[Rfam]
RNA sequence: AGUAAUGCUACCACAAUAGCAUCCAUCGAACCAGGUCAGGGUCGGAAGACAGCAGCCUUAAGGUGGCUCUGUUAUGUGUGGUGGCUUUUUUCUU
Numbered sequence: 001a002g003u004a005a006u007g008c009u010a011c012c013a014c015a016a017u018a019g020c021a022u023c024c025a026u027c028g029a030a031c032c033a034g035g036u037c038a039g040g041g042u043c044g045g046a047a048g049a050c051a052g053c054a055g056c057c058u059u060a061a062g063g064u065g066g067c068u069c070u071g072u073u074a075u076g077u078g079u080g081g082u083g084g085c086u087u088u089u090u091u092c093u094u
Stems, first nucleotide, its partner, number of pairs: 004090002007087001008084006014076001016075006023066005033058004041050003
Dot-bracket structure: ...((.((((((((.((((((.(((((.....((((....(((....)))....))))...)))))...)))))))..))))))..).))....